A member of the RNA family "Streptomyces RNA 6106" from Streptomyces pluripotens, 85 nucleotides long.
Identified by deep sequencing of transcriptome at the end of exponential growth phase. Appears smaller on northern blot than sequencing transcript. This indicates processing step. Streptomyces specific.
By type it is a small RNA.
A reference for the family is Vockenhuber et al. (2011), "Deep sequencing-based identification of small non-coding RNAs in Streptomyces coelicolor", RNA Biol.
Lineage of the source: Bacteria > Actinomycetota > Kitasatosporales > Streptomycetaceae > Streptomyces.

RNA sequence: ACGCCGCCCAAGGCGGCGUCCGCGGCCUCCAACGGGCCCAGGAGGCGGGGGUGGUGCCGUGUCGGCGCAGUACCACCCCCGCCAG
Numbered sequence: 001a002c003g004c005c006g007c008c009c010a011a012g013g014c015g016g017c018g019u020c021c022g023c024g025g026c027c028u029c030c031a032a033c034g035g036g037c038c039c040a041g042g043a044g045g046c047g048g049g050g051g052u053g054g055u056g057c058c059g060u061g062u063c064g065g066c067g068c069a070g071u072a073c074c075a076c077c078c079c080c081g082c083c084a085g
Stems, first nucleotide, its partner, number of pairs: 001019007021042001024039002026036003045082013059068003